Shown here is a 108-nucleotide RNA from Miscanthus lutarioriparius, a member of the family "MIR5565 microRNA precursor family". NCBI's taxonomy places the organism under Eukaryota, Embryophyta, Euphyllophyta, Poaceae, Miscanthus. A search with the family's covariance model found it, with a score of 86 bits. Rfam 15.1 lists 3,346 matches to the family in 5 species.

[Rfam]
RNA sequence: GCAUGUGUAUCCAUAUCAAUCCAUGUGUGUUGGAGUGGAAUGGAAUGAAAUUUAGUUUAAUUCCACUCUAAUCCACUUCAACACAUGUGGAUUGAGACGAAUACAUGG
Numbered sequence: 001g002c003a004u005g006u007g008u009a010u011c012c013a014u015a016u017c018a019a020u021c022c023a024u025g026u027g028u029g030u031u032g033g034a035g036u037g038g039a040a041u042g043g044a045a046u047g048a049a050a051u052u053u054a055g056u057u058u059a060a061u062u063c064c065a066c067u068c069u070a071a072u073c074c075a076c077u078u079c080a081a082c083a084c085a086u087g088u089g090g091a092u093u094g095a096g097a098c099g100a101a102u103a104c105a106u107g108g
Stems, first nucleotide, its partner, number of pairs: 004107007012099001014097001016095017035076005041070003046065002